Record summary
This 131-nucleotide RNA from Jaculus jaculus belongs to the Rfam family "Small nucleolar RNA SNORA33". Rfam links the family to the GO terms nucleolus and RNA processing.
[Rfam]
RNA sequence: AGGCCAGCUAGCUAAUCUGCUUAUCUGACUAUGUUUCUGCAGUAAUGUAGAAAGAUGUGGCAACAGCAAUGCCAUUUCAUGAGCCUUAAGGACAACUGAGGUCAUUAUGGUCCUUCAAAAUGGCUAUAAUA
Numbered sequence: 001a002g003g004c005c006a007g008c009u010a011g012c013u014a015a016u017c018u019g020c021u022u023a024u025c026u027g028a029c030u031a032u033g034u035u036u037c038u039g040c041a042g043u044a045a046u047g048u049a050g051a052a053a054g055a056u057g058u059g060g061c062a063a064c065a066g067c068a069a070u071g072c073c074a075u076u077u078c079a080u081g082a083g084c085c086u087u088a089a090g091g092a093c094a095a096c097u098g099a100g101g102u103c104a105u106u107a108u109g110g111u112c113c114u115u116c117a118a119a120a121u122g123g124c125u126a127u128a129a130u131a
Base pairs, nucleotide, nucleotide: 003061004060005059006058017042018041019040020039071124072123073122074121083111084110085109087107088106089105091103092102093101

The base pairs follow the family's consensus structure, which was predicted with PFOLD. Rfam 15.1 lists 1,176 matches to the family in 522 species.